Overview
Shown here is a 587-nucleotide part of an RNA from Prosthecomicrobium pneumaticum, a member of the family "Bacterial large subunit ribosomal RNA". The base pairs follow the family's consensus structure, which is taken from published work. Taxonomically the source falls in Prosthecomicrobium (Bacteria, Pseudomonadati, Hyphomicrobiales, Kaistiaceae).
[Rfam]
RNA sequence: CCCGCGGUCAGACGGAAAGACCCCAUGAACCUUUACUACAACUUUGCACUGGCAUUCGUGUCGGUAUGUGUAGGAUAGGUGGUAGGCUUUGAAGCCCGGGCGCCAGCUCGGGUGGAGCCAUCCUUGAAAUACCACCCUUACUAACAUGACUGUCUAACCGCGGCCCGUCAUCCGGGUCCGGGACAGUGCAUGGUGGGUAGUUUGACUGGGGCGGUCGCCUCCCAAAGUGUAACGGAGGCGCGCGAUGGUGGGCUCAGAGCGGUCGGAAAUCGCUCGUCGAGUGCAAUGGCAUAAGCCCGCCUGACUGCGAGACUGACAAGUCGAGCAGAGUCGAAAGACGGCCAUAGUGAUCCGGUGGUCCCACGUGGACGGGCCAUCGCUCAACGGAUAAAAGGUACUCUGGGGAUAACAGGCUGAUGAUUCCCAAGCGUCCACAGCGACGGAAUCGUUUGGCACCUCGAUGUCGACUCAUCACAUCCUGGGGCUGGAGAAGGUCCCAAGGGUUCGGCUGUUCGCCGAUUAAAGUGGUACGUGAGUUGGGUUCAGAACGUCGUGAGACAGUUCGGUCCCUAUCUGCCGUGGGUGUA
Number, nucleotide and partner (000 for none) at each position: 001c583002c582003c581004g580005c579006g578007g577008u576009c000010a575011g574012a573013c000014g570015g569016a000017a000018a000019g000020a000021c000022c404023c403024c402025a401026u000027g400028a399029a396030c395031c394032u393033u392034u000035a201036c200037u199038a198039c000040a000041a000042c193043u192044u000045u190046g189047c188048a187049c000050u000051g154052g153053c152054a151055u000056u149057c148058g147059u146060g145061u144062c000063g142064g141065u140066a139067u000068g137069u000070g000071u000072a000073g000074g000075a000076u000077a000078g136079g135080u134081g133082g132083u000084a000085g119086g118087c117088u000089u000090u000091g000092a000093a000094g113095c112096c111097c110098g109099g108100g107101c106102g000103c000104c000105a000106g101107c100108u099109c098110g097111g096112g095113u094114g000115g000116a000117g087118c086119c085120a000121u000122c000123c000124u000125u000126g000127a000128a000129a000130u000131a000132c082133c081134a080135c079136c078137c068138u000139u066140a065141c064142u063143a000144a061145c060146a059147u058148g057149a056150c000151u054152g053153u052154c051155u000156a000157a000158c181159c180160g179161c000162g178163g177164c176165c175166c174167g173168u000169c000170a000171u000172c000173c167174g166175g165176g164177u163178c162179c160180g159181g158182g000183a000184c000185a000186g000187u048188g047189c046190a045191u000192g043193g042194u000195g000196g000197g000198u038199a037200g036201u035202u000203u000204g216205a215206c214207u213208g000209g000210g000211g000212c000213g207214g206215u205216c204217g239218c238219c237220u236221c235222c234223c000224a000225a000226a000227g000228u000229g000230u000231a000232a000233c000234g222235g221236a220237g219238g218239c217240g385241c000242g342243c341244g000245a000246u000247g000248g300249u299250g298251g297252g296253c295254u280255c279256a000257g275258a274259g273260c272261g271262g270263u000264c000265g000266g000267a000268a000269a000270u262271c261272g260273c259274u258275c257276g000277u000278c000279g255280a254281g290282u289283g000284c000285a000286a000287u000288g000289g282290c281291a000292u000293a000294a000295g253296c252297c251298c250299g249300c248301c000302u000303g000304a000305c328306u327307g326308c325309g000310a000311g322312a321313c320314u000315g000316a000317c000318a000319a000320g313321u312322c311323g000324a000325g308326c307327a306328g305329a000330g339331u338332c337333g000334a000335a000336a000337g332338a331339c330340g000341g243342c242343c000344a000345u000346a000347g000348u000349g000350a000351u000352c000353c379354g378355g377356u376357g375358g374359u373360c000361c372362c371363a000364c000365g000366u000367g000368g000369a000370c000371g362372g361373g359374c358375c357376a356377u355378c354379g353380c000381u000382c000383a000384a000385c240386g000387g000388a000389u000390a000391a000392a033393a032394g031395g030396u029397a000398c000399u028400c027401u025402g024403g023404g022405g000406a000407u000408a000409a000410c000411a000412g000413g454414c453415u452416g000417a451418u448419g447420a446421u445422u444423c443424c442425c000426a000427a000428g438429c437430g000431u000432c000433c000434a000435c000436a000437g429438c428439g000440a000441c000442g424443g423444a422445a421446u420447c419448g418449u000450u000451u417452g415453g414454c413455a000456c000457c000458u000459c000460g000461a000462u000463g000464u000465c540466g538467a537468c536469u535470c532471a529472u528473c527474a526475c525476a000477u000478c503479c502480u000481g498482g497483g496484g495485c494486u493487g000488g000489a000490g000491a000492a000493g486494g485495u484496c483497c482498c481499a000500a000501g000502g479503g478504u000505u519506c518507g517508g516509c515510u000511g000512u000513u000514c000515g509516c508517c507518g506519a505520u000521u000522a000523a000524a000525g475526u474527g473528g472529u471530a000531c000532g470533u000534g000535a469536g468537u467538u466539g000540g465541g000542u000543u000544c000545a000546g564547a563548a562549c561550g559551u558552c557553g000554u000555g000556a000557g552558a551559c550560a000561g549562u548563u547564c546565g000566g000567u000568c000569c015570c014571u000572a000573u012574c011575u010576g008577c007578c006579g005580u004581g003582g002583g001584u000585g000586u000587a000